[Rfam]
RNA sequence: CUGUGAAUAUUCUCGCUGUUCUGAUUUUGUAAUAGUCAGGACAGGCUAAACAUUCGCUACAUUAAGGCCAUGUGUGUGUCCCCAUACCUAGUUCUUUCCCUAGGUUUGGUUUUAUAAAUGCUGGUGAUAAAC
Numbered sequence: 001c002u003g004u005g006a007a008u009a010u011u012c013u014c015g016c017u018g019u020u021c022u023g024a025u026u027u028u029g030u031a032a033u034a035g036u037c038a039g040g041a042c043a044g045g046c047u048a049a050a051c052a053u054u055c056g057c058u059a060c061a062u063u064a065a066g067g068c069c070a071u072g073u074g075u076g077u078g079u080c081c082c083c084a085u086a087c088c089u090a091g092u093u094c095u096u097u098c099c100c101u102a103g104g105u106u107u108g109g110u111u112u113u114a115u116a117a118a119u120g121c122u123g124g125u126g127a128u129a130a131a132c
Base pairs, nucleotide, nucleotide: 003057004056005055016044017043018042019041020040021039022038023037024036025035026034067125068124069123070122072121073120082109083108084107086105087104088103089102090101091100
A member of the RNA family "Small nucleolar RNA SNORA72" from Saimiri boliviensis, 132 nucleotides long. The family has 29 seed sequences and 1,541 matches in Rfam 15.1. It is annotated as an H/ACA-box small nucleolar RNA. It scores 152 bits against the family's covariance model. A reference for the family is Ganot et al. (1997), "The family of box ACA small nucleolar RNAs is defined by an evolutionarily conserved secondary structure and ubiquitous sequence elements essential for RNA accumulation", Genes Dev.